[Rfam]
RNA: mir-544 microRNA precursor family
Organism: Vicugna pacos
RNA sequence: AUCACUCCAGGGAUCUUGUUAAAAUGCAGAUUCUGAAUCAGUAGGUCUUUGAUCGAGCCGAAGAGUCUGCAUUUCUAACAGGUUCCCAGGUGACACCAC
Numbered sequence: 001a002u003c004a005c006u007c008c009a010g011g012g013a014u015c016u017u018g019u020u021a022a023a024a025u026g027c028a029g030a031u032u033c034u035g036a037a038u039c040a041g042u043a044g045g046u047c048u049u050u051g052a053u054c055g056a057g058c059c060g061a062a063g064a065g066u067c068u069g070c071a072u073u074u075c076u077a078a079c080a081g082g083u084u085c086c087c088a089g090g091u092g093a094c095a096c097c098a099c
Base pairs, nucleotide, nucleotide: 003092004091005090010086011085012084015082016081017080018079019078020077021076022074023073024072026070027069028068029067030066032064033063034062